[Rfam]
RNA sequence: UUCUUAUUAGAUGAUAAUUAUCACAUGUCAUGUUCUGAAUUGGAUUUCGAAUCCAUGAAAGAUGAAAUCUUAUAAUCAGAAUAUGAUAAGUAACCGUUAAUAAUU
Numbered sequence: 001u002u003c004u005u006a007u008u009a010g011a012u013g014a015u016a017a018u019u020a021u022c023a024c025a026u027g028u029c030a031u032g033u034u035c036u037g038a039a040u041u042g043g044a045u046u047u048c049g050a051a052u053c054c055a056u057g058a059a060a061g062a063u064g065a066a067a068u069c070u071u072a073u074a075a076u077c078a079g080a081a082u083a084u085g086a087u088a089a090g091u092a093a094c095c096g097u098u099a100a101u102a103a104u105u
Base pairs, nucleotide, nucleotide: 021093023091026088029085030084031083033081034080035079036078039076040075041074
The record is a 105-nucleotide RNA from Glycine max, which matches "MIR1520 microRNA precursor family" in Rfam.
Clan: MIR1520 microRNA precursor clan.
Rfam links the family to the GO terms RISC complex and miRNA-mediated post-transcriptional gene silencing.